Rfam assigns this 98-nucleotide sequence from Coregonus sp. 'balchen' to the family "mir-454 microRNA precursor family". On this family, see Jima et al., Blood 2010: "Deep sequencing of the small RNA transcriptome of normal and malignant human B cells identifies hundreds of novel microRNAs". Lineage of the source: Eukaryota > Opisthokonta > Actinopteri > Teleostei > Coregonus.
RNA sequence: UCGAUUGCUCCCAAGUCCUGAAACUCUUAUCAGGAUUGUCUCUGCUGUCCACUUUGAGUAGUGCAAUGUUGCUUAUAGGGUUUCAGUGUUUGUGUUAA
Number, nucleotide and partner (000 for none) at each position: 001u000002c000003g000004a000005u000006u000007g000008c000009u000010c000011c000012c000013a000014a000015g000016u000017c000018c000019u000020g084021a083022a082023a081024c080025u079026c078027u000028u077029a076030u075031c071032a070033g069034g000035a067036u066037u065038g064039u063040c000041u000042c061043u060044g059045c058046u057047g000048u000049c000050c000051a000052c000053u000054u000055u000056g000057a046058g045059u044060a043061g042062u000063g039064c038065a037066a036067u035068g000069u033070u032071g031072c000073u000074u000075a030076u029077a028078g026079g025080g024081u023082u022083u021084c020085a000086g000087u000088g000089u000090u000091u000092g000093u000094g000095u000096u000097a000098a000